[Rfam]
RNA sequence: AUAGGGUUAUGACCUAUGAAUUGACAGCCAGUGUUUGGAAUUUGACUGCCUGUCAGUUCUGUAGGCCACUGCCUUGU
Numbered sequence: 001a002u003a004g005g006g007u008u009a010u011g012a013c014c015u016a017u018g019a020a021u022u023g024a025c026a027g028c029c030a031g032u033g034u035u036u037g038g039a040a041u042u043u044g045a046c047u048g049c050c051u052g053u054c055a056g057u058u059c060u061g062u063a064g065g066c067c068a069c070u071g072c073c074u075u076g077u
Base pairs, nucleotide, nucleotide: 001077002076003075004074005073006072007071010068011067013065014064015063016062018059019058020057021056022055023054024053025052026051027050029048030047031046
Rfam assigns this 77-nucleotide RNA from Chanos chanos to the family "mir-192/215 microRNA precursor family". Pairs were carried over by alignment from the consensus structure, which was predicted with PFOLD. About the family: This family represents the human microRNA (miRNA) precursors mir-192 and mir-215. Animal miRNAs are transcribed as ~70nt precursors and subsequently processed by the Dicer enzyme to give a ~22nt product. A reference for the family is Lagos-Quintana et al. (2003), "New microRNAs from mouse and human", RNA. It scores 75 bits against the family's covariance model.